This 302-nucleotide RNA from Oryctolagus cuniculus belongs to the Rfam family "7SK RNA".
Its Rfam clan is "7SK clan".
The match comes from Rfam's covariance-model search (284 bits).
[Rfam]
RNA sequence: GGAUGUGAGGGCGAUCUGGCUGCGACAUCUGUCACCCCAUUGAUCGCCAGGGUUGAUUCGGCUGAUCUGGCUGGCUAGGCGGGUGUCCCCUUCCUCCCUCACUGCUCCAUGUGCGUCCCUCCCGAAGCUGCGCGCUCGGUCGAAGAGGACGACCAUCCCCGCUAGAGGAGGACCGGUCUUCGGUCAAGGGUAUACGAGUAGCUGCGCUCCCCUGCUAGAACCUCCAAACAAGCUCUCAAGGAACUAAGAUGACUCUGGAAGUUAUUAUUGUUAUAAUAAUUAUUAUUAGUUUAUUAUUUAAU
Numbered sequence: 001g002g003a004u005g006u007g008a009g010g011g012c013g014a015u016c017u018g019g020c021u022g023c024g025a026c027a028u029c030u031g032u033c034a035c036c037c038c039a040u041u042g043a044u045c046g047c048c049a050g051g052g053u054u055g056a057u058u059c060g061g062c063u064g065a066u067c068u069g070g071c072u073g074g075c076u077a078g079g080c081g082g083g084u085g086u087c088c089c090c091u092u093c094c095u096c097c098c099u100c101a102c103u104g105c106u107c108c109a110u111g112u113g114c115g116u117c118c119c120u121c122c123c124g125a126a127g128c129u130g131c132g133c134g135c136u137c138g139g140u141c142g143a144a145g146a147g148g149a150c151g152a153c154c155a156u157c158c159c160c161g162c163u164a165g166a167g168g169a170g171g172a173c174c175g176g177u178c179u180u181c182g183g184u185c186a187a188g189g190g191u192a193u194a195c196g197a198g199u200a201g202c203u204g205c206g207c208u209c210c211c212c213u214g215c216u217a218g219a220a221c222c223u224c225c226a227a228a229c230a231a232g233c234u235c236u237c238a239a240g241g242a243a244c245u246a247a248g249a250u251g252a253c254u255c256u257g258g259a260a261g262u263u264a265u266u267a268u269u270g271u272u273a274u275a276a277u278a279a280u281u282a283u284u285a286u287u288a289g290u291u292u293a294u295u296a297u298u299u300a301a302u
Stems, first nucleotide, its partner, number of pairs: 001108003005102007013093002018090002024087010035074002037070003042067004046062003116171002118168004122139004127135002141161002147158003201266001203264001207261002211258002214255001223249002295301001